[Rfam]
RNA: Small nucleolar RNA U54
RNA sequence: GGCUCUGUGAUUACUUUGCCUUAUCGGCAGUAUACGCUAUUCUGAAAACAGAGUAUGAAGAGGAUAAUUUAUACUAAAUGAGAGCC
Numbered sequence: 001g002g003c004u005c006u007g008u009g010a011u012u013a014c015u016u017u018g019c020c021u022u023a024u025c026g027g028c029a030g031u032a033u034a035c036g037c038u039a040u041u042c043u044g045a046a047a048a049c050a051g052a053g054u055a056u057g058a059a060g061a062g063g064a065u066a067a068u069u070u071a072u073a074c075u076a077a078a079u080g081a082g083a084g085c086c
Stems, first nucleotide, its partner, number of pairs: 001086005